6S / SsrS RNA: a 184-nucleotide RNA from Trichormus variabilis. Pairs were carried over by alignment from the consensus structure, which is taken from published work. E. coli 6S RNA was the first non coding RNA to be sequenced, but its function was unknown until recently. By type it is a non-coding RNA gene. On this family, see Wassarman and Storz, Cell 2000: "6S RNA regulates E. coli RNA polymerase activity". Taxonomically the source falls in Trichormus variabilis (Bacteria, Cyanobacteriota, Nostocaceae, Trichormus).

[Rfam]
RNA sequence: GUUGCACUGCGACGUUGGUGACUGCCAUCAAGUUUUUUGAUCUAUGUCUUUAAGAAAAAGGGAACCAAACGUCUCUCGUGGCAGUAUACCGGGCUUGUACCCGGAAACUUUAAACGAGGAAAAUCGGUACCCACCUGGUUUAACCAGGUCAUAAACUUAGGUAAAACGGCGUUGCGGUGAACUC
Numbered sequence: 001g002u003u004g005c006a007c008u009g010c011g012a013c014g015u016u017g018g019u020g021a022c023u024g025c026c027a028u029c030a031a032g033u034u035u036u037u038u039g040a041u042c043u044a045u046g047u048c049u050u051u052a053a054g055a056a057a058a059a060g061g062g063a064a065c066c067a068a069a070c071g072u073c074u075c076u077c078g079u080g081g082c083a084g085u086a087u088a089c090c091g092g093g094c095u096u097g098u099a100c101c102c103g104g105a106a107a108c109u110u111u112a113a114a115c116g117a118g119g120a121a122a123a124u125c126g127g128u129a130c131c132c133a134c135c136u137g138g139u140u141u142a143a144c145c146a147g148g149u150c151a152u153a154a155a156c157u158u159a160g161g162u163a164a165a166a167c168g169g170c171g172u173u174g175c176g177g178u179g180a181a182c183u184c
Stems, first nucleotide, its partner, number of pairs: 003181001005179011018167002034155003038151006060132003064128003068124001074119006084108002089104005